A member of the RNA family "Pseudomonas sRNA P26" from Pseudomonas sp. HLS-6, 66 nucleotides long. By type it is a non-coding RNA gene. Rfam describes the family as follows. This small RNA (sRNA) was computationally identified in the genome of the opportunistic pathogen Pseudomonas aeruginosa and its expression verified by northern blot analysis. P26 is conserved across many Gammaproteobacteria species and appears to be consistently located between the DNA directed RNA polymerase (beta subunit) and 50S ribosomal protein L7/L12 genes. NCBI's taxonomy places the organism under Bacteria, Pseudomonadati, Pseudomonadota, Gammaproteobacteria, Pseudomonas.

Nucleotides: 066
Stems, first nucleotide, its partner, number of pairs: 014039005022030002042065010
Number, partner (000 for none) and nucleotide at each position: 001000g002000a003000c004000u005000u006000u007000g008000c009000g010000u011000a012000u013000c014039c015038a016037g017036c018035c019000c020000a021000a022030g023029c024000g025000u026000u027000a028000a029023g030022c031000g032000a033000a034000c035018g036017g037016c038015u039014g040000a041000u042065g043064g044063c045062u046061g047060g048059u049058g050057g051056c052000u053000c054000u055000u056051g057050c058049c059048a060047c061046c062045g063044g064043c065042c066000u